A member of the RNA family "Lysine riboswitch aptamer" from Hazenella coriacea, 184 nucleotides long.
Lineage of the source: Bacteria > Bacillati > Bacillota > Thermoactinomycetaceae > Hazenella.
Pairs were carried over by alignment from the consensus structure, which is taken from published work.
The family has 47 seed sequences and 3,224 matches in Rfam 15.1.
RNA sequence: CGGUGAGGUAGAGGUCGCGGUUUUUAUGAGUAUGUUGGAGAAGGUGCGGAGAACACCAAAGAUCCCACACAGAAAGGAUAAAUCGCCGAAGUCCAUCUAAGUUCUCUGCUUGAGAUGGGUUGGGGCUGUUCUCGAAUAGGGACAGAACUGUCACGUUUGAUUGACGUGAUGAGCUAUCUUCAGC
Numbered sequence: 001c002g003g004u005g006a007g008g009u010a011g012a013g014g015u016c017g018c019g020g021u022u023u024u025u026a027u028g029a030g031u032a033u034g035u036u037g038g039a040g041a042a043g044g045u046g047c048g049g050a051g052a053a054c055a056c057c058a059a060a061g062a063u064c065c066c067a068c069a070c071a072g073a074a075a076g077g078a079u080a081a082a083u084c085g086c087c088g089a090a091g092u093c094c095a096u097c098u099a100a101g102u103u104c105u106c107u108g109c110u111u112g113a114g115a116u117g118g119g120u121u122g123g124g125g126c127u128g129u130u131c132u133c134g135a136a137u138a139g140g141g142a143c144a145g146a147a148c149u150g151u152c153a154c155g156u157u158u159g160a161u162u163g164a165c166g167u168g169a170u171g172a173g174c175u176a177u178c179u180u181c182a183g184c
Stems, first nucleotide, its partner, number of pairs: 006179006017086007025078001033071003036067003040063001090121009100111002122149002126145007151169007
Dot-bracket structure: .....((((((.....(((((((.(.......((((((.(......................).))).)))......).)))))))...(((((((((.((........)).)))))))))((..(((((((......)))))))..)).(((((((.....)))))))....)))))).....